[Rfam]
RNA sequence: AGGAGCAAUAACCAAUUUCUUGUUGUAUCAAGAAGGUUGGUUAUUGCUCCUAAAUUU
Dot-bracket structure: ((((((((((((....((((((......)))))).....))))))))))))......
Shown here is a 57-nucleotide RNA from Cephalotus follicularis, a member of the family "Plastid-psbA-3 3UTR RNA". About the family: Plastid psbA-3 is a non-coding RNA (ncRNA) present in plastids. It was identified in inverted repeat sequences in the 3 prime untranslate region (3UTR) of photosystem II quinone-binding protein (psbA). NCBI's taxonomy places the organism under Eukaryota, Embryophyta, Pentapetalae, Oxalidales, Cephalotus. Clan: Plastid-psbA 3UTR RNA clan.